[Rfam]
This 557-nucleotide part of an RNA from an uncultured archaeon belongs to the Rfam family "Archaeal large subunit ribosomal RNA".
RNA sequence: GUUGCUAUGCCGUCUAGUGAAUGGCUGGGCUCAAGAACCGAUGAAGGACGUGCCAAGCUGCGAUAAGCCAUGGGGAGGCGCAAGGAACCGUUGAUCCGUGGAUCUCCUAAUAGGAACUCCUAACACUUUUUGUGUUGACCCGAUAAGGGUUGGGAACGCCCUGAGUUGAAACAUCUGCGUAGGGGCAGGAAGAGAAAACAAACUUUGUGAUGCUGUUAGUAACGGCGAGUGAACACAGCACAGCCUAAACUGAAUCCCUCCUUGUAAGAGGAAGGGAGAUGUGGUGUUUUAAGCCCGCUUUUUAAAUCGGCCAGAUAUAAGAUUAAGUCCCCUGGAACGGGGUACCGUAGAGGGUGAUAGUCCCGUAGUCGCUAUCUGGUGGUUGUAGCGUGUGCUUGAGUACCGUGGGUCGGAAAUCUCGCGGGAAUAUUGGGGGACACUUACCUCCAAGGCUAAAAAUAUCUUGAGACCGAUAGCGCAAUAGUAGAGUGAUCGAAAGCUGAAAAGCACCCUGAGAAGGGAGGUUAAAAGAGCCUGAAACGAGACGGCGAUGGAGG
Numbered sequence: 001g002u003u004g005c006u007a008u009g010c011c012g013u014c015u016a017g018u019g020a021a022u023g024g025c026u027g028g029g030c031u032c033a034a035g036a037a038c039c040g041a042u043g044a045a046g047g048a049c050g051u052g053c054c055a056a057g058c059u060g061c062g063a064u065a066a067g068c069c070a071u072g073g074g075g076a077g078g079c080g081c082a083a084g085g086a087a088c089c090g091u092u093g094a095u096c097c098g099u100g101g102a103u104c105u106c107c108u109a110a111u112a113g114g115a116a117c118u119c120c121u122a123a124c125a126c127u128u129u130u131u132g133u134g135u136u137g138a139c140c141c142g143a144u145a146a147g148g149g150u151u152g153g154g155a156a157c158g159c160c161c162u163g164a165g166u167u168g169a170a171a172c173a174u175c176u177g178c179g180u181a182g183g184g185g186c187a188g189g190a191a192g193a194g195a196a197a198a199c200a201a202a203c204u205u206u207g208u209g210a211u212g213c214u215g216u217u218a219g220u221a222a223c224g225g226c227g228a229g230u231g232a233a234c235a236c237a238g239c240a241c242a243g244c245c246u247a248a249a250c251u252g253a254a255u256c257c258c259u260c261c262u263u264g265u266a267a268g269a270g271g272a273a274g275g276g277a278g279a280u281g282u283g284g285u286g287u288u289u290u291a292a293g294c295c296c297g298c299u300u301u302u303u304a305a306a307u308c309g310g311c312c313a314g315a316u317a318u319a320a321g322a323u324u325a326a327g328u329c330c331c332c333u334g335g336a337a338c339g340g341g342g343u344a345c346c347g348u349a350g351a352g353g354g355u356g357a358u359a360g361u362c363c364c365g366u367a368g369u370c371g372c373u374a375u376c377u378g379g380u381g382g383u384u385g386u387a388g389c390g391u392g393u394g395c396u397u398g399a400g401u402a403c404c405g406u407g408g409g410u411c412g413g414a415a416a417u418c419u420c421g422c423g424g425g426a427a428u429a430u431u432g433g434g435g436g437a438c439a440c441u442u443a444c445c446u447c448c449a450a451g452g453c454u455a456a457a458a459a460u461a462u463c464u465u466g467a468g469a470c471c472g473a474u475a476g477c478g479c480a481a482u483a484g485u486a487g488a489g490u491g492a493u494c495g496a497a498a499g500c501u502g503a504a505a506a507g508c509a510c511c512c513u514g515a516g517a518a519g520g521g522a523g524g525u526u527a528a529a530a531g532a533g534c535c536u537g538a539a540a541c542g543a544g545a546c547g548g549c550g551a552u553g554g555a556g557g
Base pairs, nucleotide, nucleotide: 008550009549010548011547012546013545014544015543017541023535024500025499028471029470030468031467032466033465034464035463037460045108046107047106048105049062050061051060068101069100070099071098072097073096077089078088112121113120114119138150139149140148141147157188158186159185160184161183162182168175169174198208199207212239213238214237215236216235222230223229242454243453244452245451250284251283252282260271261270262269263268296390297389298388305384306383307382308381321370322369323368327343329342330341331340332339346350352364353363354362403424404423405422406421407420408419409418432448433447434446435445436444487494488493
Background:
On this family, see Yusupov et al., Science 2001: "Crystal structure of the ribosome at 5.5 A resolution".